[Rfam]
RNA: Bacterial large subunit ribosomal RNA, nucleotides 2604 to 2866
Organism: Pseudoxanthomonas suwonensis
Nucleotides: 263
Stems, first nucleotide, its partner, number of pairs: 001159008011145004017045007047102005055096003062089005067082006106140003113133005162175002177260001180258003184200005205251003208247005215239001221234005
Number, partner (000 for none) and nucleotide at each position: 001159g002158g003157a004156g005155a006154u007153u008152u009000g010000a011145g012144a013143g014142g015000g016000g017045c018044u019043g020042c021041u022040c023039c024000u025000a026000g027000u028000a029000c030000g031000a032000g033000a034000g035000g036000a037000c038000c039023g040022g041021a042020g043019u044018g045017g046000a047102c048101g049100a050099a051098c052000c053000u054000c055096u056095g057094g058000u059000g060000u061000u062089c063088c064087g065086g066085u067082u068081g069080u070079c071078a072077c073000g074000c075000c076000a077072g078071u079070g080069g081068c082067a083000u084000u085066g086065c087064c088063g089062g090000g091000u092000a093000g094057c095056u096055a097000u098051g099050u100049u101048c102047g103000g104000a105000a106140g107139c108138g109000a110000u111000a112000a113133c114132c115131g116130c117129u118000g119000a120000a121000a122000g123000c124000a125000u126000c127000u128000a129117a130116g131115c132114g133113g134000g135000a136000a137000g138108c139107g140106c141000g142014c143013c144012u145011c146000a147000a148000g149000a150000u151000g152008a153007g154006a155005u156004c157003u158002c159001c160000c161000g162175g163174g164000a165000c166000a167000c168000a169000a170000g171000u172000c173000c174163c175162c176000u177260a178000a179000a180258g181257g182256a183000a184200c185199c186198a187197u188196c189000a190000a191000g192000a193000c194000c195000a196188g197187g198186u199185g200184g201000u202000u203000g204000a205251u206250a207249g208247g209246u210245c211244a212243g213000g214000u215239g216000u217000g218000u219000a220000a221234g222233c223232g224231c225230a226000g227000c228000a229000a230225u231224g232223c233222g234221u235000u236000g237000a238000g239215c240000u241000a242000a243212c244211u245210g246209a247208u248000a249207c250206u251205a252000a253000u254000g255000a256182u257181c258180c259000g260177u261000g262000c263000g